[Rfam]
This 43-nucleotide RNA sequence from Avastrovirus galli belongs to the Rfam family "Coronavirus 3' stem-loop II-like motif (s2m)". Rfam classes the family as a cis-regulatory element.
RNA sequence: CUUUCCCGAGGCCACGGCGAGUAGCAUCGAGGGUACAGGAAAG
Number, nucleotide and partner (000 for none) at each position: 001c000002u042003u041004u040005c039006c038007c000008g000009a000010g000011g034012c033013c032014a000015c029016g028017g025018c024019g000020a000021g000022u000023a000024g018025c017026a000027u000028c016029g015030a000031g000032g013033g012034u011035a000036c000037a000038g006039g005040a004041a003042a002043g000
The source organism's lineage runs through Viruses, Pisuviricota, Stellavirales, Astroviridae and Avastrovirus 2. On this family, see Robertson et al., PLoS Biol 2005: "The structure of a rigorously conserved RNA element within the SARS virus genome". Rfam's curators write: The s2m motif is found in the 3' UTRs of astrovirus, coronavirus and equine rhinovirus genomes. Its function is unknown, but various viral 3' UTR regions have been found to play roles in viral replication and packaging. The seed alignment was expanded in 2020 by Eric Nawrocki.